[Rfam]
RNA sequence: UCCAUCCAUGCGCUUCGGCAGGAGCGGGGGAACCAGGUAAGUCGCCGGUCCGGAUUUCGGAACGGCUUGGGGUGAAGUCGCGCUCAUCGUGCGGCCGGGCAUCUCCCGCCCGAACCCGACAGCUCACCUCGCAGGCGCCGGAGAGGAAUUCG
Numbered sequence: 001u002c003c004a005u006c007c008a009u010g011c012g013c014u015u016c017g018g019c020a021g022g023a024g025c026g027g028g029g030g031a032a033c034c035a036g037g038u039a040a041g042u043c044g045c046c047g048g049u050c051c052g053g054a055u056u057u058c059g060g061a062a063c064g065g066c067u068u069g070g071g072g073u074g075a076a077g078u079c080g081c082g083c084u085c086a087u088c089g090u091g092c093g094g095c096c097g098g099g100c101a102u103c104u105c106c107c108g109c110c111c112g113a114a115c116c117c118g119a120c121a122g123c124u125c126a127c128c129u130c131g132c133a134g135g136c137g138c139c140g141g142a143g144a145g146g147a148a149u150u151c152g
Stems, first nucleotide, its partner, number of pairs: 001023003024132006034069005070117003078094004097111004
Dot-bracket structure: (((.................)))((((((....(((((..........................)))))(((.....((((.........))))..((((.......))))...))).........))))))....................
This 152-nucleotide RNA from Streptomyces flaveus belongs to the Rfam family "c-di-AMP riboswitch aptamer (ydaO/yuaA leader)". Taxonomically the source falls in Streptomyces (Bacteria, Bacillati, Actinomycetes, Streptomycetaceae). The match comes from Rfam's covariance-model search (69 bits).